[Rfam]
RNA: Purine riboswitch aptamer
Organism: Bacillus sp. AFS018417
RNA sequence: AAGCAAUAUUAUAUCGCACCUCAUAUAAUCGCGGGGAUAUGGCCUGCAAGUCUCUACCUAACGACCGUUAAUCGUUGGACUAUGAGGGAAAGUCACUCGGUA
Numbered sequence: 001a002a003g004c005a006a007u008a009u010u011a012u013a014u015c016g017c018a019c020c021u022c023a024u025a026u027a028a029u030c031g032c033g034g035g036g037a038u039a040u041g042g043c044c045u046g047c048a049a050g051u052c053u054c055u056a057c058c059u060a061a062c063g064a065c066c067g068u069u070a071a072u073c074g075u076u077g078g079a080c081u082a083u084g085a086g087g088g089a090a091a092g093u094c095a096c097u098c099g100g101u102a
Base pairs, nucleotide, nucleotide: 019087020086021085022084023083024082025081029049031047032046033045034044035043058078059077060076061075062074063073064072